RNA sequence: ACUUUUAUGUGGGGGUGCUAGUCAUGCUAGCUGAGACCGUAUUCUUGAAAUACGGACCCUUUGAACCUGAUCUGGUUGGCACCAGCGUAGGGAACAUUUCAUUUUGUCAU
Number, nucleotide and partner (000 for none) at each position: 001a000002c000003u000004u000005u000006u000007a097008u096009g095010u094011g060012g059013g058014g057015g000016u000017g031018c030019u029020a028021g027022u000023c000024a000025u000026g000027c021028u020029a019030g018031c017032u000033g000034a000035g000036a000037c000038c054039g053040u052041a051042u050043u000044c000045u000046u000047g000048a000049a000050a042051u041052a040053c039054g038055g000056a000057c014058c013059c012060u011061u000062u000063g000064a000065a000066c091067c090068u089069g088070a000071u000072c085073u084074g083075g082076u000077u000078g000079g000080c000081a000082c075083c074084a073085g072086c000087g000088u069089a068090g067091g066092g000093a000094a010095c009096a008097u007098u000099u000100c000101a000102u000103u000104u000105u000106g000107u000108c000109a000110u000
RNA: TPP riboswitch aptamer (THI element)